[Rfam]
RNA sequence: GUUUCUCCGGGGCGGAUCCUCCUCCCUUCUUCCCCGGAGAGCAGCCGGCACCUCCUCCCGCCGGCUCAAAUUGGGAAAAAGGCCGGCACCUCCUCCCGCCGGCCUUUUUCU
Numbered sequence: 001g002u003u004u005c006u007c008c009g010g011g012g013c014g015g016a017u018c019c020u021c022c023u024c025c026c027u028u029c030u031u032c033c034c035c036g037g038a039g040a041g042c043a044g045c046c047g048g049c050a051c052c053u054c055c056u057c058c059c060g061c062c063g064g065c066u067c068a069a070a071u072u073g074g075g076a077a078a079a080a081g082g083c084c085g086g087c088a089c090c091u092c093c094u095c096c097c098g099c100c101g102g103c104c105u106u107u108u109u110c111u
Stems, first nucleotide, its partner, number of pairs: 007037006014030003043066006077108011
This 111-nucleotide RNA from Mesorhizobium hungaricum belongs to the Rfam family "Alphaproteobacterial ar14". It scores 64 bits against the family's covariance model. Rfam describes the family as follows. Smr14C2 was renamed NfeR1 (Nodule Formation Efficiency RNA) highly expressed in salt stress and during the symbiotic interaction on legume roots. The family's RNA type in Rfam is small RNA. The pairing is the family consensus, mapped onto this sequence. NCBI's taxonomy places the organism under Bacteria, Pseudomonadati, Alphaproteobacteria, Phyllobacteriaceae, Mesorhizobium.